[Rfam]
RNA sequence: AUGUAAGAUAAAUGCUUAAUACUUACCUGAAUGUAUUUCUGCAGAAAUUUAGAAAAAGCUGGCAGUAGUAAAGCUGUGUUACCUUAAGGAGAAUAUUAAGAUCAUUAAGGUCCCUGAAAGUGGCUACAAAU
Numbered sequence: 001a002u003g004u005a006a007g008a009u010a011a012a013u014g015c016u017u018a019a020u021a022c023u024u025a026c027c028u029g030a031a032u033g034u035a036u037u038u039c040u041g042c043a044g045a046a047a048u049u050u051a052g053a054a055a056a057a058g059c060u061g062g063c064a065g066u067a068g069u070a071a072a073g074c075u076g077u078g079u080u081a082c083c084u085u086a087a088g089g090a091g092a093a094u095a096u097u098a099a100g101a102u103c104a105u106u107a108a109g110g111u112c113c114c115u116g117a118a119a120g121u122g123g124c125u126a127c128a129a130a131u
Stems, first nucleotide, its partner, number of pairs: 003063002006060002016045002020043001022041001073124004081111007089103002